[Rfam]
RNA sequence: CGAGUGAACCAUGGUUAAGGAACUCGGCAAAAUGCCCCCGUAACUUCGGGAGAAGGGGGGCCGGAUCCGUCAAACUCUUUUCGAGUGGCAGCGGUGAUGGCCGCAGAGACCAGGCCCAAGCGACUGUUUACUAAAAACACAGGUCCGUGCGAAGUUGUAAGACGAUGUAUACGGACUGACUCCUGCCCGGUGCUGGAAGGUUAAGGGGACCGGUUAGACGCAAGUCGAAGCUGAGAACUUAAGCCCCAGUAAACGGCGGUGGUAACUAUAACCAUCCUAAGGUAGCGAAAUUCCUUGUCGGGUAAGUUCCGACCUGCACGAAUGGAGUAACGACUUGGGCGCUGUCUCAACCAUGGACUCG
Numbered sequence: 001c002g003a004g005u006g007a008a009c010c011a012u013g014g015u016u017a018a019g020g021a022a023c024u025c026g027g028c029a030a031a032a033u034g035c036c037c038c039c040g041u042a043a044c045u046u047c048g049g050g051a052g053a054a055g056g057g058g059g060g061c062c063g064g065a066u067c068c069g070u071c072a073a074a075c076u077c078u079u080u081u082c083g084a085g086u087g088g089c090a091g092c093g094g095u096g097a098u099g100g101c102c103g104c105a106g107a108g109a110c111c112a113g114g115c116c117c118a119a120g121c122g123a124c125u126g127u128u129u130a131c132u133a134a135a136a137a138c139a140c141a142g143g144u145c146c147g148u149g150c151g152a153a154g155u156u157g158u159a160a161g162a163c164g165a166u167g168u169a170u171a172c173g174g175a176c177u178g179a180c181u182c183c184u185g186c187c188c189g190g191u192g193c194u195g196g197a198a199g200g201u202u203a204a205g206g207g208g209a210c211c212g213g214u215u216a217g218a219c220g221c222a223a224g225u226c227g228a229a230g231c232u233g234a235g236a237a238c239u240u241a242a243g244c245c246c247c248a249g250u251a252a253a254c255g256g257c258g259g260u261g262g263u264a265a266c267u268a269u270a271a272c273c274a275u276c277c278u279a280a281g282g283u284a285g286c287g288a289a290a291u292u293c294c295u296u297g298u299c300g301g302g303u304a305a306g307u308u309c310c311g312a313c314c315u316g317c318a319c320g321a322a323u324g325g326a327g328u329a330a331c332g333a334c335u336u337g338g339g340c341g342c343u344g345u346c347u348c349a350a351c352c353a354u355g356g357a358c359u360c361g
Base pairs, nucleotide, nucleotide: 001361002360003359004358009356010355011354012353013352014351015350016349018347019346020345035059036058037057038056039055044049060101061100062099063098067094068093069092070091102106114340115339116338117337118336119335120334121332122331125139126138127137142177143176144175145174146173147172148171149170150167154163155162156161180327181326182325183324185257186256187255190254191253192250193249194248195247196246199245200244201243205239206238211233212232213231214230217226218225258276259275260274261273262272263271277281287314297313298312299311300310301309302308
RNA: Bacterial large subunit ribosomal RNA, nucleotides 1862 to 2222
Organism: Nocardioides jishulii